[Rfam]
RNA sequence: GAGAACUAACAUCUUGAUGAGUCGAAUGAUAGGGUAACGCCUAAAAAGGCUCCUUUAAUACUCCGAUGGGCGUGUAUAUGUAUAAGCGUCGAAGCGUCUAGAGCUCGGUGAAGUCGCGUGACCCUGCCCUUUUGGAAUUAAAAACCUCUUGGAAACCUGUUCAGAGGUGAACAGUGCGGGUUUAGCGCGGAAGUCUAUAAA
Number, nucleotide and partner (000 for none) at each position: 001g000002a000003g000004a000005a000006c000007u000008a000009a000010c000011a000012u000013c000014u000015u000016g000017a000018u000019g052020a051021g050022u049023c048024g000025a000026a000027u000028g000029a000030u000031a000032g042033g041034g040035u000036a000037a000038c000039g000040c034041c033042u032043a000044a000045a000046a000047a000048g023049g022050c021051u020052c019053c193054u192055u191056u190057a000058a000059u000060a000061c000062u000063c108064c107065g106066a105067u100068g099069g098070g097071c096072g095073u094074g000075u092076a000077u000078a089079u088080g087081u000082a000083u000084a000085a000086g000087c080088g079089u078090c000091g000092a075093a000094g073095c072096g071097u070098c069099u068100a067101g000102a000103g000104c000105u066106c065107g064108g063109u000110g000111a000112a000113g000114u000115c189116g188117c187118g186119u185120g000121a000122c000123c180124c179125u178126g177127c176128c152129c151130u000131u000132u000133u000134g000135g148136a147137a000138u000139u000140a000141a000142a000143a000144a000145c000146c000147u136148c135149u000150u000151g129152g128153a000154a000155a000156c000157c174158u173159g172160u171161u170162c169163a168164g000165a000166g000167g000168u163169g162170a161171a160172c159173a158174g157175u000176g127177c126178g125179g124180g123181u000182u000183u000184a000185g119186c118187g117188c116189g115190g056191a055192a054193g053194u000195c000196u000197a000198u000199a000200a000201a000
Description
Group II catalytic intron D1-D4-5: a 201-nucleotide RNA from Desulfosporosinus fructosivorans. Gene Ontology term of the family: Group II intron splicing. From the family's description: Group II introns are found in rRNA, tRNA and mRNA of organelles in fungi, plants and protists, and also in mRNA in bacteria. NCBI's taxonomy places the organism under Bacteria, Bacillati, Bacillota, Clostridia, Desulfosporosinus. The base pairs follow the family's consensus structure. The literature on the family includes a 2001 paper in Trends Genet by Bonen and Vogel, "The ins and outs of group II introns".